[Rfam]
RNA sequence: CAGUUAAAACGUCCGUAGUCAAAUUUUAGUCUUUAGGCGAAGUGGCCUGGUCUUCAUUGAUCAAGCUCGUUUCUGCCGAGACUUUUUUUUUGGUUAUGCUAUGAGUGGCUUCGGUCAUUUGUAGUCUCUAGCCAAAUAAUUACCAUGAGCAAAUCAGAGUGUUUAAAGCAGGCUUUUAAGCUUGAAUGUGUUAGCAUGGAAUAAUGAAAUAUGACUUCAGUCCCUAUUUCGUUGGUUCAGGAACUAGAGUAAUGAUGAAUAGAAACGGUUGGGGGCAUUUGUAUUUGGUCGCUAGAGGUGAAAUUCUUGGAUUGACCGAAGACAAACUACUGCGAAAGCAUUUGACCCAGGACGUUUUCAUUGAUCAAGGUCUAAAGUUAAGGGAUCGAAGACGAUUAGAUACCGUCGUAGUCUUAACCACAAACUAUGCCGACUAGAGAUUGGGCCUGUUUAUUAUGACUGGCUCAGCAUCUUAGCGAAAGUAAAGUUUUUGGGUUCUGGGGGGAGUAUGGGACGCAAGGCUGAAACUUAAAGGAAU
Numbered sequence: 001c002a003g004u005u006a007a008a009a010c011g012u013c014c015g016u017a018g019u020c021a022a023a024u025u026u027u028a029g030u031c032u033u034u035a036g037g038c039g040a041a042g043u044g045g046c047c048u049g050g051u052c053u054u055c056a057u058u059g060a061u062c063a064a065g066c067u068c069g070u071u072u073c074u075g076c077c078g079a080g081a082c083u084u085u086u087u088u089u090u091u092g093g094u095u096a097u098g099c100u101a102u103g104a105g106u107g108g109c110u111u112c113g114g115u116c117a118u119u120u121g122u123a124g125u126c127u128c129u130a131g132c133c134a135a136a137u138a139a140u141u142a143c144c145a146u147g148a149g150c151a152a153a154u155c156a157g158a159g160u161g162u163u164u165a166a167a168g169c170a171g172g173c174u175u176u177u178a179a180g181c182u183u184g185a186a187u188g189u190g191u192u193a194g195c196a197u198g199g200a201a202u203a204a205u206g207a208a209a210u211a212u213g214a215c216u217u218c219a220g221u222c223c224c225u226a227u228u229u230c231g232u233u234g235g236u237u238c239a240g241g242a243a244c245u246a247g248a249g250u251a252a253u254g255a256u257g258a259a260u261a262g263a264a265a266c267g268g269u270u271g272g273g274g275g276c277a278u279u280u281g282u283a284u285u286u287g288g289u290c291g292c293u294a295g296a297g298g299u300g301a302a303a304u305u306c307u308u309g310g311a312u313u314g315a316c317c318g319a320a321g322a323c324a325a326a327c328u329a330c331u332g333c334g335a336a337a338g339c340a341u342u343u344g345a346c347c348c349a350g351g352a353c354g355u356u357u358u359c360a361u362u363g364a365u366c367a368a369g370g371u372c373u374a375a376a377g378u379u380a381a382g383g384g385a386u387c388g389a390a391g392a393c394g395a396u397u398a399g400a401u402a403c404c405g406u407c408g409u410a411g412u413c414u415u416a417a418c419c420a421c422a423a424a425c426u427a428u429g430c431c432g433a434c435u436a437g438a439g440a441u442u443g444g445g446c447c448u449g450u451u452u453a454u455u456a457u458g459a460c461u462g463g464c465u466c467a468g469c470a471u472c473u474u475a476g477c478g479a480a481a482g483u484a485a486a487g488u489u490u491u492u493g494g495g496u497u498c499u500g501g502g503g504g505g506a507g508u509a510u511g512g513g514a515c516g517c518a519a520g521g522c523u524g525a526a527a528c529u530u531a532a533a534g535g536a537a538u
Stems, first nucleotide, its partner, number of pairs: 001500003009497001011372001013370002018365003262359004266354002269351002273348003276344002280324002284320008295306003332339002377418006387411001391407004429496003432489003436473003441468007449460003476483002502530003511523002515520001
A member of the RNA family "Eukaryotic small subunit ribosomal RNA" from Thamnidium elegans, 538 nucleotides of a longer RNA. Gene Ontology terms of the family: structural constituent of ribosome and ribosome. The match comes from Rfam's covariance-model search (1724 bits).